Shown here is a 75-nucleotide sequence from Stieleria marina, a member of the family "c-di-GMP-I-GGC riboswitch aptamer". The literature on the family includes a 2017 paper in Proc Natl Acad Sci U S A by Weinberg et al., "Bioinformatic analysis of riboswitch structures uncovers variant classes with altered ligand specificity".

[Rfam]
RNA sequence: UUUCGAAACGGCAAACCGAUCGCGAGAUUGGGACGCAAAGCUACGGAUCUCUUUGAGACCGCCGGGCUACCAAAA
Numbered sequence: 001u002u003u004c005g006a007a008a009c010g011g012c013a014a015a016c017c018g019a020u021c022g023c024g025a026g027a028u029u030g031g032g033a034c035g036c037a038a039a040g041c042u043a044c045g046g047a048u049c050u051c052u053u054u055g056a057g058a059c060c061g062c063c064g065g066g067c068u069a070c071c072a073a074a075a
Base pairs, nucleotide, nucleotide: 001075003072011036012035016031017030018029019028020027021026034061039068040067041066042065044064045063046062048058049057